[Rfam]
RNA sequence: GGCUGAUCAGGGCAAAACCGGCGCGAGCCGGCGACGCAAAGCCUCCGGUCUCAGCGACGGCAUCCGACGGAUGUCACGACUCGAGAUAGCGGGGUUGCCGGA
Numbered sequence: 001g002g003c004u005g006a007u008c009a010g011g012g013c014a015a016a017a018c019c020g021g022c023g024c025g026a027g028c029c030g031g032c033g034a035c036g037c038a039a040a041g042c043c044u045c046c047g048g049u050c051u052c053a054g055c056g057a058c059g060g061c062a063u064c065c066g067a068c069g070g071a072u073g074u075c076a077c078g079a080c081u082c083g084a085g086a087u088a089g090c091g092g093g094g095u096u097g098c099c100g101g102a
Stems, first nucleotide, its partner, number of pairs: 012037002018031005040096004045092003048087005